[Rfam]
RNA: Archaeal large subunit ribosomal RNA, nucleotides 2142 to 2725
RNA sequence: CCCCCAACACCGAGAGAAGACCCCGUAGAGUUUCACUGUAGCCUGGCACUGUCUUCCGGGCGCUCCCGCGUAGCGUAGGUAGGAGGCGUCGAAGCCACCCUUUCGGGGGUGGUGGAGCCGAAAGUGAAACACUACCCUCGAGCGUUCGGAGGACUAACCUUCCCAUAAGGGAGGGGACAGUGUCAGGUGGACAGUUCGGCUGGGGCGGCACUCCCGCGAAAAGAUAACACGGGAGCCCAAAGGUCAGCUCAGGUGGUACAGAACGCCACCGUAGAGUGCAAGGGCAAAAGCUGGCCUGACGAGACCCUUCAACGCACGGGGUCUCGGCGCGAAAGCGCGGCCUAGCGAACGCUCAUGCCCCCACACGUGGGGGCUGGGCAUGUCAGAAAAAUUACCUCGGGGAUAACAGGGUCGUCGCGGGCGAGAGCUCCCAUCGACCCCGCGGUUUGCUACAUCGAUGUCGGCUCUUCCCACCCUGGAGGUGCAGCUGCCUCCAAGGGUAGGGCUGCCCGCCCGUUAAAGGGGAACGUGAGCUGGGUUUAGACCGUCGCGAGACAGGUCGGACUCUAAGGGUUGGGGGUGCG
Numbered sequence: 001c002c003c004c005c006a007a008c009a010c011c012g013a014g015a016g017a018a019g020a021c022c023c024c025g026u027a028g029a030g031u032u033u034c035a036c037u038g039u040a041g042c043c044u045g046g047c048a049c050u051g052u053c054u055u056c057c058g059g060g061c062g063c064u065c066c067c068g069c070g071u072a073g074c075g076u077a078g079g080u081a082g083g084a085g086g087c088g089u090c091g092a093a094g095c096c097a098c099c100c101u102u103u104c105g106g107g108g109g110u111g112g113u114g115g116a117g118c119c120g121a122a123a124g125u126g127a128a129a130c131a132c133u134a135c136c137c138u139c140g141a142g143c144g145u146u147c148g149g150a151g152g153a154c155u156a157a158c159c160u161u162c163c164c165a166u167a168a169g170g171g172a173g174g175g176g177a178c179a180g181u182g183u184c185a186g187g188u189g190g191a192c193a194g195u196u197c198g199g200c201u202g203g204g205g206c207g208g209c210a211c212u213c214c215c216g217c218g219a220a221a222a223g224a225u226a227a228c229a230c231g232g233g234a235g236c237c238c239a240a241a242g243g244u245c246a247g248c249u250c251a252g253g254u255g256g257u258a259c260a261g262a263a264c265g266c267c268a269c270c271g272u273a274g275a276g277u278g279c280a281a282g283g284g285c286a287a288a289a290g291c292u293g294g295c296c297u298g299a300c301g302a303g304a305c306c307c308u309u310c311a312a313c314g315c316a317c318g319g320g321g322u323c324u325c326g327g328c329g330c331g332a333a334a335g336c337g338c339g340g341c342c343u344a345g346c347g348a349a350c351g352c353u354c355a356u357g358c359c360c361c362c363a364c365a366c367g368u369g370g371g372g373g374c375u376g377g378g379c380a381u382g383u384c385a386g387a388a389a390a391a392u393u394a395c396c397u398c399g400g401g402g403a404u405a406a407c408a409g410g411g412u413c414g415u416c417g418c419g420g421g422c423g424a425g426a427g428c429u430c431c432c433a434u435c436g437a438c439c440c441c442g443c444g445g446u447u448u449g450c451u452a453c454a455u456c457g458a459u460g461u462c463g464g465c466u467c468u469u470c471c472c473a474c475c476c477u478g479g480a481g482g483u484g485c486a487g488c489u490g491c492c493u494c495c496a497a498g499g500g501u502a503g504g505g506c507u508g509c510c511c512g513c514c515c516g517u518u519a520a521a522g523g524g525g526a527a528c529g530u531g532a533g534c535u536g537g538g539u540u541u542a543g544a545c546c547g548u549c550g551c552g553a554g555a556c557a558g559g560u561c562g563g564a565c566u567c568u569a570a571g572g573g574u575u576g577g578g579g580g581u582g583c584g
Base pairs, nucleotide, nucleotide: 001580002579003578004577005576006575007574008573010572011571014567015566022401023400024399025398027397028396029393030392031391032390033389035195036194037193038192042187043186044185045184046183047182048181051154052153053152054151055150056149057148058147059146060145061144062143063142064141065140068137078136079135080134081133082132085119086118087117097110098109099108100107101106158175159174160173161172162171163170198211199209200208201207212234213233214232215231216230237340238339243295244294245293246292247291248290249275250274252270253269254268255267256266257265276285277284300326301325302324303323304322305321306320307319308318328337330335351379352378353377354376355375357374359373360372361371362370410451411450412449414448415445416444417443418442419441420440421439425435426434462537463535464534465533466532467529468526469525470524471523472522475500476499479494480493481492482491483490503515504514505513506512543561544560545559546558547556548555549554